[Rfam]
RNA sequence: ACCAAGGGAGUAGCAGACGGAUUAUUCCGUGAUAAUGUCGUCAUUACGAAAUCAUUGAUUUCCGGCAUUGUCUUAAACAGCGAGACUUGUUUUUAGCAAACAAGUCUCUUUUU
Numbered sequence: 001a002c003c004a005a006g007g008g009a010g011u012a013g014c015a016g017a018c019g020g021a022u023u024a025u026u027c028c029g030u031g032a033u034a035a036u037g038u039c040g041u042c043a044u045u046a047c048g049a050a051a052u053c054a055u056u057g058a059u060u061u062c063c064g065g066c067a068u069u070g071u072c073u074u075a076a077a078c079a080g081c082g083a084g085a086c087u088u089g090u091u092u093u094u095a096g097c098a099a100a101c102a103a104g105u106c107u108c109u110u111u112u113u
Stems, first nucleotide, its partner, number of pairs: 005030001007028002011024003014020001031072010043061001047057003082108011
Dot-bracket structure: ....(.((..((((.....).)))..)).)((((((((((..(...(((.....)))...).)))))))))).........(((((((((((.....))))))))))).....
Rfam assigns this 113-nucleotide RNA from Streptococcus henryi to the family "Streptococcus sRNA 10".
The family's consensus secondary structure was predicted with RNAfold.
Taxonomically the source falls in Streptococcus (Bacteria, Bacillota, Bacilli, Streptococcaceae).
The family's RNA type in Rfam is small RNA.